The record is a 164-nucleotide sequence from Aliiglaciecola sp. M165, which matches "Molybdenum/Tungsten riboswitch aptamer (Moco RNA motif)" in Rfam. The family has 160 seed sequences and 1,248 matches in Rfam 15.1.
[Rfam]
RNA sequence: UAAAAGUUAAGACUCCGAGCCUCUUUUCCUAAGUUCUUAAAAUGAAUAAGGCAACUUGGCCGCGAUAAAUUUUAUCGCCAGGGUUAAAAGGGAAACCUGAUAGCCUCCCGCAAUACUGACAAUGUUUGUUGGUAACUUUGGAAAGGUGUUUAAUGUGUUAGAAG
Numbered sequence: 001u002a003a004a005a006g007u008u009a010a011g012a013c014u015c016c017g018a019g020c021c022u023c024u025u026u027u028c029c030u031a032a033g034u035u036c037u038u039a040a041a042a043u044g045a046a047u048a049a050g051g052c053a054a055c056u057u058g059g060c061c062g063c064g065a066u067a068a069a070u071u072u073u074a075u076c077g078c079c080a081g082g083g084u085u086a087a088a089a090g091g092g093a094a095a096c097c098u099g100a101u102a103g104c105c106u107c108c109c110g111c112a113a114u115a116c117u118g119a120c121a122a123u124g125u126u127u128g129u130u131g132g133u134a135a136c137u138u139u140g141g142a143a144a145g146g147u148g149u150u151u152a153a154u155g156u157g158u159u160a161g162a163a164g
Stems, first nucleotide, its partner, number of pairs: 003158001011150003015146002019060003025054002028051002033047004062078005081106006089098003107141002
Record summary
The match comes from Rfam's covariance-model search (82 bits).